[Rfam]
RNA: c-di-GMP-I riboswitch aptamer
Organism: Sulfuritortus calidifontis
RNA sequence: CCUUGAAAAGGGCAAAUCCAUCGAGCGAUGGGCAUAAAAUAGUCGGCCUGAGGGACAGGUUUCAAGGCGGCGAGAUUGCCAAG
Number, nucleotide and partner (000 for none) at each position: 001c000002c000003u000004u000005g000006a000007a000008a000009a000010g000011g000012g035013c000014a000015a000016a000017u032018c031019c030020a029021u028022c027023g000024a000025g000026c000027g022028a021029u020030g019031g018032g017033c000034a000035u012036a000037a000038a077039a076040u075041a000042g000043u073044c072045g071046g068047c067048c066049u000050g000051a000052g000053g062054g061055a060056c000057a000058g000059g000060u055061u054062u053063c000064a000065a000066g048067g047068c046069g000070g000071c045072g044073a043074g000075a040076u039077u038078g000079c000080c000081a000082a000083g000